[Rfam]
Rfam assigns this 190-nucleotide RNA sequence from Allonocardiopsis opalescens to the family "Actinobacteria sRNA Ms_IGR-5". It scores 94 bits against the family's covariance model. A reference for the family is Li et al. (2013), "Identification of small RNAs in Mycobacterium smegmatis using heterologous Hfq", RNA.
RNA sequence: ACGCGCGAAAGGAGGUGGUCCGAAAGUGCAUGCUUCUAGGACUCGCGAGGUGGCUGUCCGCUAGCCGCCGUCGCCUGGUUGCCAGUCGAUGACGGCUCGCGAAUCCAAGGCAGACACCCGGGCCCCUGGGGGUCGACACCAGUCCGGUCGACCGGUCUCCGUCCGGAGACGACCCAGGGGUUCGCCCAUU
Number, nucleotide and partner (000 for none) at each position: 001a000002c000003g000004c000005g000006c000007g000008a000009a000010a000011g000012g000013a000014g058015g057016u056017g055018g054019u053020c000021c000022g000023a000024a000025a000026g000027u000028g000029c000030a000031u000032g000033c000034u000035u000036c000037u000038a000039g000040g000041a000042c000043u000044c000045g000046c000047g000048a000049g000050g000051u000052g000053g019054c018055u017056g016057u015058c014059c101060g100061c099062u000063a097064g096065c095066c000067g093068c000069c091070g090071u000072c088073g000074c000075c000076u000077g000078g000079u000080u000081g000082c000083c000084a000085g000086u000087c000088g072089a000090u070091g069092a000093c067094g000095g065096c064097u063098c000099g061100c060101g059102a000103a000104u000105c000106c000107a000108a000109g000110g000111c000112a000113g000114a000115c000116a000117c000118c000119c184120g183121g182122g181123c180124c179125c178126c177127u176128g175129g174130g173131g000132g152133u151134c150135g149136a148137c147138a000139c000140c000141a000142g000143u000144c000145c000146g000147g137148u136149c135150g134151a133152c132153c000154g000155g000156u000157c000158u000159c000160c000161g000162u000163c000164c000165g000166g000167a000168g000169a000170c000171g000172a000173c130174c129175c128176a127177g126178g125179g124180g123181u122182u121183c120184g119185c000186c000187c000188a000189u000190u000